[Rfam]
RNA sequence: CGGCGAGGACGACCUCGCCGCGGUCCGUGAGCUCUCCGGGGACGACCUCG
Dot-bracket structure: ((((((((....))))))))................(((((....)))))

Guanidine-II riboswitch aptamer (mini-ykkC): a 50-nucleotide RNA from Nocardioides ganghwensis. Taxonomically the source falls in Nocardioides (Bacteria, Actinomycetota, Actinomycetes, Propionibacteriales).